[Rfam]
RNA sequence: AUCGCCGCAUGCGACUGGCGAGAUUCGAGUGGAAUAAACCACGAGGAAGCAUGCGGCUGCACCGUGCCGUUCGCCUGGGGAAAAGUA
Numbered sequence: 001a002u003c004g005c006c007g008c009a010u011g012c013g014a015c016u017g018g019c020g021a022g023a024u025u026c027g028a029g030u031g032g033a034a035u036a037a038a039c040c041a042c043g044a045g046g047a048a049g050c051a052u053g054c055g056g057c058u059g060c061a062c063c064g065u066g067c068c069g070u071u072c073g074c075c076u077g078g079g080g081a082a083a084a085g086u087a
Stems, first nucleotide, its partner, number of pairs: 004057009015046002017075005029042004065081001067079002
This 87-nucleotide sequence from Paenibacillus radicis belongs to the Rfam family "ZMP/ZTP riboswitch aptamer (pfl RNA motif)". A search with the family's covariance model found it, with a score of 55 bits.